Rfam assigns this 114-nucleotide RNA sequence from Pasteurellaceae bacterium 15-036681 to the family "Alpha operon ribosome binding site".
RNA sequence: UCCUGAUAUGCUGUUUGAGUAUCCUGAAACGGGCUUUUCAAGAUCAGCAUAUCAAUAACAUCGUAAAAAUAGGAGUGCAUAGUGGCCCGUAUUGCAGGCAUUAACAUUCCUGAU
Numbered sequence: 001u002c003c004u005g006a007u008a009u010g011c012u013g014u015u016u017g018a019g020u021a022u023c024c025u026g027a028a029a030c031g032g033g034c035u036u037u038u039c040a041a042g043a044u045c046a047g048c049a050u051a052u053c054a055a056u057a058a059c060a061u062c063g064u065a066a067a068a069a070u071a072g073g074a075g076u077g078c079a080u081a082g083u084g085g086c087c088c089g090u091a092u093u094g095c096a097g098g099c100a101u102u103a104a105c106a107u108u109c110c111u112g113a114u
Base pairs, nucleotide, nucleotide: 004054005053006052007051008050009049010048011047012046023098024097025096030089031088032087033086038113039112040111
Record summary:
The organism belongs to Pasteurellaceae, within Bacteria. Gene Ontology term of the family: ribosome binding. Rfam's curators write: The bacterial alpha operon ribosome binding site is surrounded by this complex pseudoknotted structure. Translation of the mRNA produces 4 ribosomal protein products, one of which (S4) acts as a translational repressor by binding to the nested pseudoknot region. The mechanism of repression is thought to involve a conformational switch in the pseudoknot region and ribosome entrapment.